[Rfam]
RNA sequence: CUACUCCCUCUGUCCCAUAAUAUAAGAACGUUUUUGACACUAGUGUAGUGUCAAAAACAUUCUUAUAUUACAGGACGGAGGGAGUAU
Numbered sequence: 001c002u003a004c005u006c007c008c009u010c011u012g013u014c015c016c017a018u019a020a021u022a023u024a025a026g027a028a029c030g031u032u033u034u035u036g037a038c039a040c041u042a043g044u045g046u047a048g049u050g051u052c053a054a055a056a057a058c059a060u061u062c063u064u065a066u067a068u069u070a071c072a073g074g075a076c077g078g079a080g081g082g083a084g085u086a087u
Base pairs, nucleotide, nucleotide: 003085004084005083007081008080009079010078011077013075014074015073019069020068021067022066023065024064025063026062027061028060030058031057032056033055034054035053036052037051038050039049040048041047
This 87-nucleotide RNA from Triticum urartu belongs to the Rfam family "MIR1120/MIR1122 microRNA precursor family". The literature on the family includes a 2007 paper in Genome Biol by Yao et al., "Cloning and characterization of microRNAs from wheat (Triticum aestivum L.)".